[Rfam]
Annotation:
ctRNA: a 47-nucleotide RNA sequence from Brucella anthropi. This family represents a group of ctRNAs (or counter-transcribed RNAs) from p42d and related plasmids. ctRNAs are small, highly structured, antisense sequences which are involved in negative regulation. Members of this family are known to bind to the mRNA of repC causing translational repression. This model contains the predicted stem-loop structure followed by a U-rich tract which is proposed to act as a Rho-independent transcriptional terminator. A search with the family's covariance model found it, with a score of 66 bits. NCBI's taxonomy places the organism under Bacteria, Pseudomonadati, Alphaproteobacteria, Brucellaceae, Brucella anthropi. Pairs were carried over by alignment from the consensus structure, which is taken from published work. On this family, see Venkova-Canova et al., Mol Microbiol 2004: "Two discrete elements are required for the replication of a repABC plasmid: an antisense RNA and a stem-loop structure".

RNA sequence: AGAGAGGCUUCCACGACGGCGACGUUUUGGGGGCCUUUUUCUUUUGG
Numbered sequence: 001a002g003a004g005a006g007g008c009u010u011c012c013a014c015g016a017c018g019g020c021g022a023c024g025u026u027u028u029g030g031g032g033g034c035c036u037u038u039u040u041c042u043u044u045u046g047g
Base pairs, nucleotide, nucleotide: 005036006035007034008033009032010031011030012029015026016025017024018023